[Rfam]
RNA sequence: UCUCUUUUUCUUGGUGGGGACUGAGUGUAUGGUCUAUUUCCUGUUAUGUACGAAGGCGGAGGGAAGGAACUCUGCCCCCCCCAGCGUCAUGUCUUUGGUGUCAGUGGAAGCCACCAGUUCUAUCCUCAAGCCCUGGGACACUG
Number, nucleotide and partner (000 for none) at each position: 001u056002c055003u054004c000005u052006u000007u000008u000009u000010c000011u000012u000013g000014g000015u043016g042017g041018g040019g039020a038021c000022u036023g035024a000025g034026u000027g000028u000029a000030u000031g000032g000033u000034c025035u023036a022037u000038u020039u019040c018041c017042u016043g015044u000045u000046a000047u000048g000049u000050a000051c000052g005053a000054a003055g002056g001057c000058g000059g000060a000061g000062g000063g000064a000065a000066g000067g000068a000069a000070c000071u000072c000073u000074g000075c000076c000077c000078c000079c000080c000081c000082c135083a134084g133085c000086g131087u130088c000089a000090u000091g000092u000093c000094u000095u000096u000097g000098g000099u000100g000101u117102c000103a000104g114105u113106g112107g111108a000109a000110g000111c107112c106113a105114c104115c000116a000117g101118u000119u000120c000121u000122a000123u000124c000125c000126u000127c000128a000129a000130g087131c086132c000133c084134u083135g082136g000137g000138a000139c000140a000141c000142u000143g000
RNA: Small nucleolar RNA SNORA57